[Rfam]
Overview:
A member of the RNA family "Group II catalytic intron D1-D4-6" from Candidatus Acidiferrum panamense, 221 nucleotides long. Taxonomically the source falls in Candidatus Acidiferrum (Bacteria, Pseudomonadati, Terriglobia, Candidatus Acidiferrales). A search with the family's covariance model found it, with a score of 184 bits. On this family, see Chu et al., EMBO J 2001: "Control of branch-site choice by a group II intron". Pairs were carried over by alignment from the consensus structure.
RNA sequence: AAAGAUCACACGUUGAAGGACUAGCGAGCCACAUCGACCCCGAGUCAUGCGAGGCCACUCGCAAGGGGGGCGUCGAAGCGUUGACAGGGGAAUGUAUGGGCCGGAUAUUCAGCCGCGUAAGAACUUACUCCGGGAUGCCGACGCUGUAAGGAGAAGCGGAAGGCCACACUCAGCACACCGAUAUCGCGAGGGGUGUUGGGGUCCCGCGCGGUCAAAGACCC
Numbered sequence: 001a002a003a004g005a006u007c008a009c010a011c012g013u014u015g016a017a018g019g020a021c022u023a024g025c026g027a028g029c030c031a032c033a034u035c036g037a038c039c040c041c042g043a044g045u046c047a048u049g050c051g052a053g054g055c056c057a058c059u060c061g062c063a064a065g066g067g068g069g070g071c072g073u074c075g076a077a078g079c080g081u082u083g084a085c086a087g088g089g090g091a092a093u094g095u096a097u098g099g100g101c102c103g104g105a106u107a108u109u110c111a112g113c114c115g116c117g118u119a120a121g122a123a124c125u126u127a128c129u130c131c132g133g134g135a136u137g138c139c140g141a142c143g144c145u146g147u148a149a150g151g152a153g154a155a156g157c158g159g160a161a162g163g164c165c166a167c168a169c170u171c172a173g174c175a176c177a178c179c180g181a182u183a184u185c186g187c188g189a190g191g192g193g194u195g196u197u198g199g200g201g202u203c204c205c206g207c208g209c210g211g212u213c214a215a216a217g218a219c220c221c
Stems, first nucleotide, its partner, number of pairs: 011036002014033002018030002022189001024187002038090004044085004048080002050075003054071003058067003109215001112212006131206006137164003142158004169200008178191002